[Rfam]
RNA sequence: ACUCAUUUCAAGUUUGUGCGUGAAUCGAACCCUAUCAUAUCAUUUCUGCUACGAAUCUCGAAGUUGCCUGAAACAGCAACGGCAACGGAUGGUGUUAGAUUCACGCACAAACUCGCAAUCUGUCU
Numbered sequence: 001a002c003u004c005a006u007u008u009c010a011a012g013u014u015u016g017u018g019c020g021u022g023a024a025u026c027g028a029a030c031c032c033u034a035u036c037a038u039a040u041c042a043u044u045u046c047u048g049c050u051a052c053g054a055a056u057c058u059c060g061a062a063g064u065u066g067c068c069u070g071a072a073a074c075a076g077c078a079a080c081g082g083c084a085a086c087g088g089a090u091g092g093u094g095u096u097a098g099a100u101u102c103a104c105g106c107a108c109a110a111a112c113u114c115g116c117a118a119u120c121u122g123u124c125u
Base pairs, nucleotide, nucleotide: 001123002122005119006118007117011113012112013111014110015109016108017107018106019105020104021103022102023101024100025099026098028096029095030094032092033091034090035089036088

About this RNA:
MIR403 microRNA precursor family: a 125-nucleotide sequence from Tetracentron sinense. A search with the family's covariance model found it, with a score of 83 bits. A reference for the family is Mica et al. (2009), "High throughput approaches reveal splicing of primary microRNA transcripts and tissue specific expression of mature microRNAs in Vitis vinifera", BMC Genomics.